Shown here is a 74-nucleotide RNA sequence from Asaccharospora irregularis, a member of the family "Fluoride riboswitch aptamer (crcB RNA motif)". The organism belongs to Asaccharospora irregularis, within Bacteria. The match comes from Rfam's covariance-model search (49 bits).
Nucleotides: 074
Stems, first nucleotide, its partner, number of pairs: 010026004016065006045055003
Number, partner (000 for none) and nucleotide at each position: 001000a002000u003000a004000u005000a006000a007000a008000u009000a010026g011025g012024g013023a014000a015000u016065g017064a018063a019062g020061u021060u022000c023013u024012c025011c026010c027000g028000u029000g030000g031000u032000a033000u034000u035000u036000a037000c038000c039000a040000a041000a042000a043000a044000c045055g046054c047053u048000u049000a050000u051000u052000a053047a054046g055045c056000u057000g058000a059000u060021g061020a062019c063018u064017u065016c066000u067000g068000c069000a070000u071000u072000u073000a074000u